This 64-nucleotide sequence from Electrophorus electricus belongs to the Rfam family "Selenocysteine insertion sequence 1". The family's consensus secondary structure is taken from published work. The match comes from Rfam's covariance-model search (42 bits).
[Rfam]
Nucleotides: 064
Base pairs, nucleotide, nucleotide: 001064002063003062004061005060015050016049017048018047019046020045021044022043023042029039030038031037
Number, partner (000 for none) and nucleotide at each position: 001064g002063u003062g004061g005060c006000u007000u008000u009000u010000a011000u012000g013000a014000g015050g016049u017048c018047a019046g020045g021044u022043g023042c024000g025000u026000a027000a028000a029039c030038u031037a032000g033000g034000c035000g036000a037031u038030a039029g040000u041000g042023g043022c044021a045020c046019c047018u048017g049016a050015c051000u052000g053000a054000c055000g056000u057000g058000c059000u060005g061004c062003c063002a064001c